A member of the RNA family "Small nucleolar RNA SNORA41" from Galemys pyrenaicus, 135 nucleotides long. The match comes from Rfam's covariance-model search (113 bits). ACA41 is a member of the H/ACA class of snoRNA that guide the sites of modification of uridines to pseudouridines. Gene Ontology terms of the family: nucleolus and RNA processing.
RNA sequence: UUCCACAGCUGCUGGUAUGCAACUUUUCUUAGGGCACAGCAGUUGUGGUAUUGCUCUGUAGGAAAGAAAUUGUUACAGCAUUAAACACCUCUUUCUUAGCAAAACAGAAAGCGGGUAUAUCUGUGACAAACAGGA
Numbered sequence: 001u002u003c004c005a006c007a008g009c010u011g012c013u014g015g016u017a018u019g020c021a022a023c024u025u026u027u028c029u030u031a032g033g034g035c036a037c038a039g040c041a042g043u044u045g046u047g048g049u050a051u052u053g054c055u056c057u058g059u060a061g062g063a064a065a066g067a068a069a070u071u072g073u074u075a076c077a078g079c080a081u082u083a084a085a086c087a088c089c090u091c092u093u094u095c096u097u098a099g100c101a102a103a104a105c106a107g108a109a110a111g112c113g114g115g116u117a118u119a120u121c122u123g124u125g126a127c128a129a130a131c132a133g134g135a
Stems, first nucleotide, its partner, number of pairs: 003061001005059002018047007075124004088115003091111006
Rfam 15.1 lists 676 matches to the family in 522 species.